[Rfam]
Record summary: 7SK RNA: a 285-nucleotide RNA from Acipenser ruthenus. Rfam's curators write: 7SK was discovered as an abundant small nuclear RNA in the mid-70s but a possible function has only recently been suggested. The literature on the family includes a 2002 paper in Curr Biol by Blencowe, "Transcription: surprising role for an elusive small nuclear RNA". Rfam 15.1 lists 49,373 matches to the family in 668 species. It is annotated as a non-coding RNA gene. The source organism's lineage runs through Eukaryota, Bilateria, Teleostomi, Actinopterygii and Acipenser.

RNA sequence: GGAUGUGAGGGCGAACUGGCUGUGACAUCUGUAACUCCCCAUUGAUCGCUAAGGUUGAUUCGGCUGAUCUGGCUAGGCGGGUGUCCCCUUCCUCCCUCAUCACUCCAUGUGCGUCCCUCCCGAAGCUCUGCGCUCGGUCGAAGAGGAUUCCGCCACGGGUAUACGAGUAGCUGCUCCCCUGCUAGAACCUCCAAACAAGCUCAAGGUCCAUCUGUAGGAGAGUCAAGCUCCGAGAGUUCACACACAUCUAAAUGCGGCACUGCACGUGGCAGCCUGCCUUAAUUU
Numbered sequence: 001g002g003a004u005g006u007g008a009g010g011g012c013g014a015a016c017u018g019g020c021u022g023u024g025a026c027a028u029c030u031g032u033a034a035c036u037c038c039c040c041a042u043u044g045a046u047c048g049c050u051a052a053g054g055u056u057g058a059u060u061c062g063g064c065u066g067a068u069c070u071g072g073c074u075a076g077g078c079g080g081g082u083g084u085c086c087c088c089u090u091c092c093u094c095c096c097u098c099a100u101c102a103c104u105c106c107a108u109g110u111g112c113g114u115c116c117c118u119c120c121c122g123a124a125g126c127u128c129u130g131c132g133c134u135c136g137g138u139c140g141a142a143g144a145g146g147a148u149u150c151c152g153c154c155a156c157g158g159g160u161a162u163a164c165g166a167g168u169a170g171c172u173g174c175u176c177c178c179c180u181g182c183u184a185g186a187a188c189c190u191c192c193a194a195a196c197a198a199g200c201u202c203a204a205g206g207u208c209c210a211u212c213u214g215u216a217g218g219a220g221a222g223u224c225a226a227g228c229u230c231c232g233a234g235a236g237u238u239c240a241c242a243c244a245c246a247u248c249u250a251a252a253u254g255c256g257g258c259a260c261u262g263c264a265c266g267u268g269g270c271a272g273c274c275u276g277c278c279u280u281a282a283u284u285u
Base pairs, nucleotide, nucleotide: 001106002105003104005100006099007098008097009096010095011094013091014090018088019087024085025084026083027082028081029080030079031078032077035076036075039072040071041070044069045068046067047066048064049063050062114146115145116143118141119140120137121136122135123134125133126132170228171227172226174222175221189220190219191218192217195215196214197213199211250285251284252283254280256278257277258276260272261271262270263269